[Rfam]
RNA sequence: UAGGCAUAUUUUUUUCCAUCAGAUAUAGCGUAUUGGUGAUAGCCAUUUUAAACUAUGCGCUUCGUUUUGCAGGUUGAUGUUCGUUAUCAGCACUGAACGAAAAUAAAGCAGUAACCCGCAAUGUGUGCGAAUUAUUGGCAAAAGGCAACCACAGGCUGCCUUUUUCUUU
Numbered sequence: 001u002a003g004g005c006a007u008a009u010u011u012u013u014u015u016c017c018a019u020c021a022g023a024u025a026u027a028g029c030g031u032a033u034u035g036g037u038g039a040u041a042g043c044c045a046u047u048u049u050a051a052a053c054u055a056u057g058c059g060c061u062u063c064g065u066u067u068u069g070c071a072g073g074u075u076g077a078u079g080u081u082c083g084u085u086a087u088c089a090g091c092a093c094u095g096a097a098c099g100a101a102a103a104u105a106a107a108g109c110a111g112u113a114a115c116c117c118g119c120a121a122u123g124u125g126u127g128c129g130a131a132u133u134a135u136u137g138g139c140a141a142a143a144g145g146c147a148a149c150c151a152c153a154g155g156c157u158g159c160c161u162u163u164u165u166c167u168u169u
Base pairs, nucleotide, nucleotide: 018040019039020038021037061101062100063099064098065097066096070095071094072093074090075089076088077087078086079085111135112134113133114132117129118128119127120126140164141163142162143161144160145159146158147157149155150154
Dot-bracket structure: .................((((...............))))....................((((((...(((.((((((.....))))))..))))))))).........((((..((((.....))))..))))....((((((((.((...)).)))))))).....